[Rfam]
RNA: MIR9677 microRNA precursor family
RNA sequence: GGCCUCGCUUCUCUUCCACUCUACCAACAGCCACGUCUCCCCCGCGACCAUGGCGUGGCCGUUGGUAGAGUAGGAGACGAGCAUGGC
Numbered sequence: 001g002g003c004c005u006c007g008c009u010u011c012u013c014u015u016c017c018a019c020u021c022u023a024c025c026a027a028c029a030g031c032c033a034c035g036u037c038u039c040c041c042c043c044g045c046g047a048c049c050a051u052g053g054c055g056u057g058g059c060c061g062u063u064g065g066u067a068g069a070g071u072a073g074g075a076g077a078c079g080a081g082c083a084u085g086g087c
Base pairs, nucleotide, nucleotide: 002087003086004085007082008081009080010079012077013076014075015074016073018071019070020069021068022067023066024065025064026063027062028061030059031058032057033056034055035054036053037052